mir-216 microRNA precursor family: a 74-nucleotide sequence from Acipenser ruthenus. NCBI's taxonomy places the organism under Eukaryota, Metazoa, Teleostomi, Acipenserini, Acipenser. The family is grouped with related families in Rfam's "mir-216 clan".
RNA sequence: AGACUGAGUAAUCUCUGCAGGCAACUGUGAAGUUCUACCAAAUCUCACAAUCACCUGUAGAGAUCCUACAAUCU
Numbered sequence: 001a002g003a004c005u006g007a008g009u010a011a012u013c014u015c016u017g018c019a020g021g022c023a024a025c026u027g028u029g030a031a032g033u034u035c036u037a038c039c040a041a042a043u044c045u046c047a048c049a050a051u052c053a054c055c056u057g058u059a060g061a062g063a064u065c066c067u068a069c070a071a072u073c074u
Stems, first nucleotide, its partner, number of pairs: 003072001005070002011064007020056002024051001026049005